A member of the RNA family "Small nucleolar RNA snoR145" from Vigna angularis, 149 nucleotides long. Lineage of the source: Eukaryota > Embryophyta > Mesangiospermae > rosids > Vigna angularis. The family's consensus secondary structure was predicted with mfold. Rfam links the family to the GO terms RNA processing and nucleolus.
RNA sequence: AUGCGAAGGUCCCAGCAGGGGGGCGAUUACUCUUGUUGAGGCCUCUCUAACAAUCAAAUUCUAUUCCCUUCGCAUAGUUAUUCGCCGAAUCGUAGGAUGCCCAAAUUUUCUUCAAUUUUGGUGCGUCUUGAACCCUCGGCUAUAUUUUA
Dot-bracket structure: ..(((((((.(((....)))....((...(((.....))).....))...................)))))))..........(((((.......((.(((((((...........))))).)).))........))))).........